The family of this 68-nucleotide RNA from Roseobacter insulae is "L2-Alphaproteobacteria ribosomal protein leader". The family's consensus secondary structure is taken from published work. By type it is a cis-regulatory leader.
RNA sequence: GGGCACCUACGGGGGCCUUUAUACCAUAGGCGCCUCACCGCGCCGUACAGCAAAACGGAAGACAGACA
Numbered sequence: 001g002g003g004c005a006c007c008u009a010c011g012g013g014g015g016c017c018u019u020u021a022u023a024c025c026a027u028a029g030g031c032g033c034c035u036c037a038c039c040g041c042g043c044c045g046u047a048c049a050g051c052a053a054a055a056c057g058g059a060a061g062a063c064a065g066a067c068a
Stems, first nucleotide, its partner, number of pairs: 001018004006014003029044005